Shown here is a 205-nucleotide sequence from Mangrovibacter sp. MFB070, a member of the family "GcvB RNA". A search with the family's covariance model found it, with a score of 160 bits. By type it is a non-coding RNA gene. The source organism's lineage runs through Bacteria, Pseudomonadota, Gammaproteobacteria, Enterobacteriaceae and Mangrovibacter. From the family's description: The gcvB gene encodes a small untranslated RNA involved in expression of the dipeptide and oligopeptide transport systems in Escherichia coli. Included several unknown homologues in alignment (Bateman A pers obs). It base-pairs with SorC. This interaction triggers the degradation of GcvB by RNase E, alleviating the GcvB-mediated mRNA repression of other amino acid-related transport and metabolic genes. Gene Ontology terms of the family: mRNA binding and regulation of gene expression.
RNA sequence: ACUUCCUGAGCCGGAACGAAAAGCUAUUCUGAAAUGAAGGUUUUAGAGGGGCUUUUGGCUUACGGUUGUGAUGUUGUGUUGUUGUGUUUGCAUUGGUCUGCUAUUCAGACCCCGGCGGCAAAGGCUGCCUUUUUCACUUCCUGUACAUUUACCCUGUCUGUCCAUAGUGAUUUGUAUAGCACCGCAAUUUGCGGUGCUUUUUUUU
Numbered sequence: 001a002c003u004u005c006c007u008g009a010g011c012c013g014g015a016a017c018g019a020a021a022a023g024c025u026a027u028u029c030u031g032a033a034a035u036g037a038a039g040g041u042u043u044u045a046g047a048g049g050g051g052c053u054u055u056u057g058g059c060u061u062a063c064g065g066u067u068g069u070g071a072u073g074u075u076g077u078g079u080u081g082u083u084g085u086g087u088u089u090g091c092a093u094u095g096g097u098c099u100g101c102u103a104u105u106c107a108g109a110c111c112c113c114g115g116c117g118g119c120a121a122a123g124g125c126u127g128c129c130u131u132u133u134u135c136a137c138u139u140c141c142u143g144u145a146c147a148u149u150u151a152c153c154c155u156g157u158c159u160g161u162c163c164a165u166a167g168u169g170a171u172u173u174g175u176a177u178a179g180c181a182c183c184g185c186a187a188u189u190u191g192c193g194g195u196g197c198u199u200u201u202u203u204u205u
Stems, first nucleotide, its partner, number of pairs: 009060004015056002021054003024050002028047008095111006114129006145177001147175002178198008